[Rfam]
RNA: mir-574 microRNA precursor family
RNA sequence: AAGCCUGGAGAGAGAGGUAGGGUCUGAUCCACAGCCUCCGUGGCAGCUGUUGAUCAGCCAUUGCCUCUGUUUCUCUCUGGG
Numbered sequence: 001a002a003g004c005c006u007g008g009a010g011a012g013a014g015a016g017g018u019a020g021g022g023u024c025u026g027a028u029c030c031a032c033a034g035c036c037u038c039c040g041u042g043g044c045a046g047c048u049g050u051u052g053a054u055c056a057g058c059c060a061u062u063g064c065c066u067c068u069g070u071u072u073c074u075c076u077c078u079g080g081g
Base pairs, nucleotide, nucleotide: 008073009072010071011070013068014067015066016065017064018063019062020061022059024057025056026055027054028053029052032049033048034047035046